[Rfam]
RNA sequence: ACACCCCGUAUGCCCAGGUCCGCCGCAUCUCCUGGCAUGUGGGGUCGGCUCGGCCCAGAACGGCGAGAGUGGCCUCCUCGUUGACCCGUUCUGGGCCGGCCACCUU
Dot-bracket structure: ..((((((((...(((((............)))))..)))))))).(((.((((((((................................))))))))))).....
EcpR1: a 106-nucleotide sequence from Prosthecomicrobium pneumaticum. Perviously named SmelC291, SmrC10, or Sra33. According to its overproduction phenotype it was renamed Elongated Cell Phenotype RNA1. Induced by stress,EcpR1 negatively regulates cell cycle master regulatory genes dnaA and gcrA at post-transcriptional level by base pairing between its strongly conserved GC-rich loop and the target mRNAs. The literature on the family includes a 2012 paper in RNA Biol by Wilms et al., "Deep sequencing uncovers numerous small RNAs on all four replicons of the plant pathogen Agrobacterium tumefaciens". The base pairs follow the family's consensus structure, which was predicted with WAR. The family's RNA type in Rfam is small RNA. The match comes from Rfam's covariance-model search (68 bits). The source organism's lineage runs through Bacteria, Alphaproteobacteria, Hyphomicrobiales, Kaistiaceae and Prosthecomicrobium.